[Rfam]
RNA: Plasmodium RNase_P
RNA sequence: UAUGCAAUGAGUUUAAGCUCAAAACAUCCUGCAAAUAUACAUACACAAAAUGAAAGAAAGAAAUAAAAAAGAAAAAAGAAAAAAUGGAAAAAUAGGUCACAUAUUUGUAUGUUUCUUGUUUUUCCAUUUUUUUUUUUUUUUUUUUUUUUCCUUUUUCUUUCUCCUAAUUUGUGUAAUUUUUAUAAAAACAGGAAGGAAGGUCUGAGAUGCUGCAUUUAAAGAAUAGAAAAGAAAAGUCAAUGAAUUUUAAUUUUUUUUUUUAUAAUUCUUAUGAAUUAAAAAGAAAGAAAAAAAAAGUUAUAACAUUCGUUGUUACUUUUUAUUUCACAUAUAUAUAUAUAUAUAUUCUUUAAUAAAAUUUUUGAGAGAAAAAGUAUUGAACAAAUAUUAAUUAGUUACCAGAAAUAUCAAUCAUAUAUUUAAAAUUUCGUAAGAAGUUUUGUGUAUGGUUUUGAAAAAGCUAAUAAGCAAGUAUACAUUGGUGAGUUCGAUUUUUGAGGUUUUUCUUUAUUCCUACAUCUCAUAUAUCAAUAUUUUUUUUAUAAUUAUAUAUUAUACGAGGUGAUAAUAAGAAAAAUAACUUAAUUCAGACUACUCCUAACUUCAUUGCUGCAA
Numbered sequence: 001u002a003u004g005c006a007a008u009g010a011g012u013u014u015a016a017g018c019u020c021a022a023a024a025c026a027u028c029c030u031g032c033a034a035a036u037a038u039a040c041a042u043a044c045a046c047a048a049a050a051u052g053a054a055a056g057a058a059a060g061a062a063a064u065a066a067a068a069a070a071g072a073a074a075a076a077a078g079a080a081a082a083a084a085u086g087g088a089a090a091a092a093u094a095g096g097u098c099a100c101a102u103a104u105u106u107g108u109a110u111g112u113u114u115c116u117u118g119u120u121u122u123u124c125c126a127u128u129u130u131u132u133u134u135u136u137u138u139u140u141u142u143u144u145u146u147u148u149u150c151c152u153u154u155u156u157c158u159u160u161c162u163c164c165u166a167a168u169u170u171g172u173g174u175a176a177u178u179u180u181u182a183u184a185a186a187a188a189c190a191g192g193a194a195g196g197a198a199g200g201u202c203u204g205a206g207a208u209g210c211u212g213c214a215u216u217u218a219a220a221g222a223a224u225a226g227a228a229a230a231g232a233a234a235a236g237u238c239a240a241u242g243a244a245u246u247u248u249a250a251u252u253u254u255u256u257u258u259u260u261u262a263u264a265a266u267u268c269u270u271a272u273g274a275a276u277u278a279a280a281a282a283g284a285a286a287g288a289a290a291a292a293a294a295a296a297g298u299u300a301u302a303a304c305a306u307u308c309g310u311u312g313u314u315a316c317u318u319u320u321u322a323u324u325u326c327a328c329a330u331a332u333a334u335a336u337a338u339a340u341a342u343a344u345a346u347u348c349u350u351u352a353a354u355a356a357a358a359u360u361u362u363u364g365a366g367a368g369a370a371a372a373a374g375u376a377u378u379g380a381a382c383a384a385a386u387a388u389u390a391a392u393u394a395g396u397u398a399c400c401a402g403a404a405a406u407a408u409c410a411a412u413c414a415u416a417u418a419u420u421u422a423a424a425a426u427u428u429c430g431u432a433a434g435a436a437g438u439u440u441u442g443u444g445u446a447u448g449g450u451u452u453u454g455a456a457a458a459a460g461c462u463a464a465u466a467a468g469c470a471a472g473u474a475u476a477c478a479u480u481g482g483u484g485a486g487u488u489c490g491a492u493u494u495u496u497g498a499g500g501u502u503u504u505u506c507u508u509u510a511u512u513c514c515u516a517c518a519u520c521u522c523a524u525a526u527a528u529c530a531a532u533a534u535u536u537u538u539u540u541u542a543u544a545a546u547u548a549u550a551u552a553u554u555a556u557a558c559g560a561g562g563u564g565a566u567a568a569u570a571a572g573a574a575a576a577a578u579a580a581c582u583u584a585a586u587u588c589a590g591a592c593u594a595c596u597c598c599u600a601a602c603u604u605c606a607u608u609g610c611u612g613c614a615a
Stems, first nucleotide, its partner, number of pairs: 004610008013601003018499007027193005042175007198593002202590005207475005212469002329346007359372005388467003392464006413448007422441008500578007